A member of the RNA family "Plastid-psbA-1 3UTR RNA" from Cucurbita maxima, 121 nucleotides long. The organism belongs to Cucurbita, within Eukaryota. Plastid psbA-1 is a non-coding RNA (ncRNA) present in plastids. It was identified in inverted repeat sequences in the 3 prime untranslate region (3UTR) of photosystem II quinone-binding protein (psbA). The family's consensus secondary structure was predicted with LocARNA. The literature on the family includes a 2023 paper in Plant Commun by Richter et al., "Retrograde signaling in plants: A critical review focusing on the GUN pathway and beyond". Rfam classes the family as a cis-regulatory element.
RNA sequence: UUGAAGUUACAUCUAUCAAUGGAUAAGACUGAUUUCUAUCUUAGUGUAUACAAGUUCUUUCAAGUAAAGGACCAAUAACCAAUUUCUUGUUUUCUCAAGAGGAUUCAAAGAUUGAUUUUUC
Numbered sequence: 001u002u003g004a005a006g007u008u009a010c011a012u013c014u015a016u017c018a019a020u021g022g023a024u025a026a027g028a029c030u031g032a033u034u035u036c037u038a039u040c041u042u043a044g045u046g047u048a049u050a051c052a053a054g055u056u057c058u059u060u061c062a063a064g065u066a067a068a069g070g071a072c073c074a075a076u077a078a079c080c081a082a083u084u085u086c087u088u089g090u091u092u093u094c095u096c097a098a099g100a101g102g103a104u105u106c107a108a109a110g111a112u113u114g115a116u117u118u119u120u121c
Stems, first nucleotide, its partner, number of pairs: 008023001010021003067120005073114004081104001084101005